A member of the RNA family "TPP riboswitch aptamer (THI element)" from Vallitalea guaymasensis, 108 nucleotides long. Vitamin B(1) in its active form thiamin pyrophosphate (TPP) is an essential coenzyme that is synthesised by coupling of pyrimidine and thiazole moieties in bacteria. It scores 70 bits against the family's covariance model.
RNA sequence: AACAUUGGCUAGGGGGGCUAGUAUAGCUAGCUGAGAUAAAGAACGAUAUUCUUUGACCCUUGACCUGAUCUGGUUCGUACCAGCGGAGGGAAGCUUAUCGUAAUAUUU
Numbered sequence: 001a002a003c004a005u006u007g008g009c010u011a012g013g014g015g016g017g018c019u020a021g022u023a024u025a026g027c028u029a030g031c032u033g034a035g036a037u038a039a040a041g042a043a044c045g046a047u048a049u050u051c052u053u054u055g056a057c058c059c060u061u062g063a064c065c066u067g068a069u070c071u072g073g074u075u076c077g078u079a080c081c082a083g084c085g086g087a088g089g090g091a092a093g094c095u096u097a098u099c100g101u102a103a104u105a106u107u108u
Base pairs, nucleotide, nucleotide: 007095008094009093010092011060012059013058014057016054017031018030019029020028021027039053040052041051042050064089065088066087070083071082072081073080
About this RNA: The organism belongs to Vallitalea, within Bacteria.